[Rfam]
RNA: Plant signal recognition particle RNA
RNA sequence: GUCGAGCUUGUAACCCAAGCGGGGACAUUAAGAUAGUUGGACGCUGAGUUUGAUUCUUCACUCGGUAGGCUCCUGUGCACAAUUUAUUGACUUGCCCUUUCCAAGUUGGGAGUUGGUUUCACGAUCCUGGCGUAUGCCUGGGGUUGUCCGAUCACUAAAGCGGAGGGCACCGUGUCAGGCUGGCUUCACAGAGCAGCGAACACUUCCCUCUCUUGACAGUGGAAGGAUAACGAGUUGAUGUGCACUGGUUCCAACUCAGCCUGGUGAGCUGACUCUGUUGAACAACUAUCCUU
Numbered sequence: 001g002u003c004g005a006g007c008u009u010g011u012a013a014c015c016c017a018a019g020c021g022g023g024g025a026c027a028u029u030a031a032g033a034u035a036g037u038u039g040g041a042c043g044c045u046g047a048g049u050u051u052g053a054u055u056c057u058u059c060a061c062u063c064g065g066u067a068g069g070c071u072c073c074u075g076u077g078c079a080c081a082a083u084u085u086a087u088u089g090a091c092u093u094g095c096c097c098u099u100u101c102c103a104a105g106u107u108g109g110g111a112g113u114u115g116g117u118u119u120c121a122c123g124a125u126c127c128u129g130g131c132g133u134a135u136g137c138c139u140g141g142g143g144u145u146g147u148c149c150g151a152u153c154a155c156u157a158a159a160g161c162g163g164a165g166g167g168c169a170c171c172g173u174g175u176c177a178g179g180c181u182g183g184c185u186u187c188a189c190a191g192a193g194c195a196g197c198g199a200a201c202a203c204u205u206c207c208c209u210c211u212c213u214u215g216a217c218a219g220u221g222g223a224a225g226g227a228u229a230a231c232g233a234g235u236u237g238a239u240g241u242g243c244a245c246u247g248g249u250u251c252c253a254a255c256u257c258a259g260c261c262u263g264g265u266g267a268g269c270u271g272a273c274u275c276u277g278u279u280g281a282a283c284a285a286c287u288a289u290c291c292u293u
Stems, first nucleotide, its partner, number of pairs: 001026003004009001014023003030292001032290008042280002044277001046275001048273003052269001058267005064261003068252002072248002075245001077243003082239001087238008096226002099224005105217008114154005121147008129138003155160001162207005173198003180191003